This 82-nucleotide RNA from Candidatus Methylopumilus planktonicus belongs to the Rfam family "SAH (S-adenosyl-L-homocysteine) riboswitch aptamer". The organism belongs to Candidatus Methylopumilus, within Bacteria. Gene Ontology terms of the family: regulation of gene expression and S-adenosylhomocysteine metabolic process.

RNA sequence: CCUUCUGAGGAACGCUGCGAGAUUUUUUCAUAAAAUCCCAGGCUCAGAUUACAAGUUUACUUGUAAACGGCGUUCACCAAUU
Numbered sequence: 001c002c003u004u005c006u007g008a009g010g011a012a013c014g015c016u017g018c019g020a021g022a023u024u025u026u027u028u029c030a031u032a033a034a035a036u037c038c039c040a041g042g043c044u045c046a047g048a049u050u051a052c053a054a055g056u057u058u059a060c061u062u063g064u065a066a067a068c069g070g071c072g073u074u075c076a077c078c079a080a081u082u
Base pairs, nucleotide, nucleotide: 004048005047006046007045008044021037022036023035024034025033026032